[Rfam]
RNA sequence: CUGGGGUUCUGGCUUUGAGAACUGAAUUCCAAGGGUGUUCGGUUUGCAUUCAGCCCACGGAGUUCAGUUCUUAAGCUUGGAUGCUCCAA
Number, nucleotide and partner (000 for none) at each position: 001c000002u000003g000004g000005g000006g000007u000008u080009c079010u000011g077012g076013c075014u000015u000016u000017g000018a071019g070020a069021a068022c067023u066024g065025a064026a000027u000028u000029c000030c000031a000032a000033g056034g055035g054036u053037g000038u000039u000040c000041g000042g000043u000044u000045u000046g000047c000048a000049u000050u000051c000052a000053g036054c035055c034056c033057a000058c000059g000060g000061a000062g000063u000064u025065c024066a023067g022068u021069u020070c019071u018072u000073a000074a000075g013076c012077u011078u000079g009080g008081a000082u000083g000084c000085u000086c000087c000088a000089a000
Overview: The record is an 89-nucleotide RNA from Bagarius yarrelli, which matches "mir-146 microRNA precursor family" in Rfam. Rfam 15.1 lists 1,617 matches to the family in 642 species. The source organism's lineage runs through Eukaryota, Metazoa, Actinopteri, Osteoglossocephalai and Bagarius.